[Rfam]
RNA sequence: UUUUAAUUGAUAUUAGCCAGUGUCUCUAGCACAAGAGAGGACCUCUUGUGCUAGAGACACUGGCUAAUAUCAAUUUAAUUUUUUAAAAA
Numbered sequence: 001u002u003u004u005a006a007u008u009g010a011u012a013u014u015a016g017c018c019a020g021u022g023u024c025u026c027u028a029g030c031a032c033a034a035g036a037g038a039g040g041a042c043c044u045c046u047u048g049u050g051c052u053a054g055a056g057a058c059a060c061u062g063g064c065u066a067a068u069a070u071c072a073a074u075u076u077a078a079u080u081u082u083u084u085a086a087a088a089a
Stems, first nucleotide, its partner, number of pairs: 005075008015065008024056001025054001028052006035045002